[Rfam]
RNA sequence: UAUCUGUCAUGGAUAGCCGAGUGGGAGGUUAGCCGCUAAGUCAGUGACCUUGCUGCGGUUUUGGCCAGCGGGUACUGGUGCCCGGUACGAAUCCUGGGGUUGUCGAUUGUACUCGCGCGAGUAAUCCGCGAUCGCUACACGGCAUUAAGCAAUGGAAGUGACCCUUGAGGGAAGCAAUUCUGCAGAGACACUUCCACCCUGGGGUGGCGUCAUCGGAUUACACCGUCCCGUUACAGGGAAUCUGGCUGUUUGGUUGAACAACUACUUUU
Numbered sequence: 001u002a003u004c005u006g007u008c009a010u011g012g013a014u015a016g017c018c019g020a021g022u023g024g025g026a027g028g029u030u031a032g033c034c035g036c037u038a039a040g041u042c043a044g045u046g047a048c049c050u051u052g053c054u055g056c057g058g059u060u061u062u063g064g065c066c067a068g069c070g071g072g073u074a075c076u077g078g079u080g081c082c083c084g085g086u087a088c089g090a091a092u093c094c095u096g097g098g099g100u101u102g103u104c105g106a107u108u109g110u111a112c113u114c115g116c117g118c119g120a121g122u123a124a125u126c127c128g129c130g131a132u133c134g135c136u137a138c139a140c141g142g143c144a145u146u147a148a149g150c151a152a153u154g155g156a157a158g159u160g161a162c163c164c165u166u167g168a169g170g171g172a173a174g175c176a177a178u179u180c181u182g183c184a185g186a187g188a189c190a191c192u193u194c195c196a197c198c199c200u201g202g203g204g205u206g207g208c209g210u211c212a213u214c215g216g217a218u219u220a221c222a223c224c225g226u227c228c229c230g231u232u233a234c235a236g237g238g239a240a241u242c243u244g245g246c247u248g249u250u251u252g253g254u255u256g257a258a259c260a261a262c263u264a265c266u267u268u269u
Stems, first nucleotide, its partner, number of pairs: 001015004019267006027259001029257003034252001035250001039247006048238002050067001052065004069230003074226002077224004082216005087210003091205009101144001104142001108139004113131005119126002145149001153196007164187003171180003

Shown here is a 269-nucleotide RNA sequence from Aspergillus ustus, a member of the family "Fungal signal recognition particle RNA". Its Rfam clan is "SRP clan". The organism belongs to Aspergillus subgen. Nidulantes, within Eukaryota. Rfam links the family to the GO terms signal recognition particle, plasma membrane targeting, signal recognition particle, endoplasmic reticulum targeting and SRP-dependent cotranslational protein targeting to membrane, signal sequence recognition. It is annotated as a non-coding RNA gene.